[Rfam]
RNA sequence: CCGGGCGUAGCUCAGUGGAUAGAGCACCAGUCUUCGGAACUGGGUGUCGGGGGUUCGAGUCCCUCCGCCCGGG
Numbered sequence: 001c002c003g004g005g006c007g008u009a010g011c012u013c014a015g016u017g018g019a020u021a022g023a024g025c026a027c028c029a030g031u032c033u034u035c036g037g038a039a040c041u042g043g044g045u046g047u048c049g050g051g052g053g054u055u056c057g058a059g060u061c062c063c064u065c066c067g068c069c070c071g072g073g
Base pairs, nucleotide, nucleotide: 001072002071003070004069005068006067007066010025011024012023013022027043028042029041030040031039049065050064051063052062053061